[Rfam]
RNA sequence: AAGGACCUUCGGGGCAGGGUGAAAUUCCCGACCGGCGGUGAGGGUUCUUCCGAACCUAAGCCCGCGACUCGUUGAUUGCUCAUGUGGCAGUCUGCGACUGAUUUGGUGUAAUUCCAAAGCCGACGGUACAGUCCGGAUGGGAGAAGGUCAAA
Numbered sequence: 001a002a003g004g005a006c007c008u009u010c011g012g013g014g015c016a017g018g019g020u021g022a023a024a025u026u027c028c029c030g031a032c033c034g035g036c037g038g039u040g041a042g043g044g045u046u047c048u049u050c051c052g053a054a055c056c057u058a059a060g061c062c063c064g065c066g067a068c069u070c071g072u073u074g075a076u077u078g079c080u081c082a083u084g085u086g087g088c089a090g091u092c093u094g095c096g097a098c099u100g101a102u103u104u105g106g107u108g109u110a111a112u113u114c115c116a117a118a119g120c121c122g123a124c125g126g127u128a129c130a131g132u133c134c135g136g137a138u139g140g141g142a143g144a145a146g147g148u149c150a151a152a
Base pairs, nucleotide, nucleotide: 004149005148006147007146008145009144010143017029018028019027031132032131033122034121035065036064037063038062060120061119069097070096071095072094102118103117104116105115106114124135125134126133
The family of this 152-nucleotide sequence from Paenibacillus foliorum is "FMN riboswitch aptamer (RFN element)".
Rfam links the family to the GO term FMN binding.
The organism belongs to Paenibacillus, within Bacteria.
The match comes from Rfam's covariance-model search (119 bits).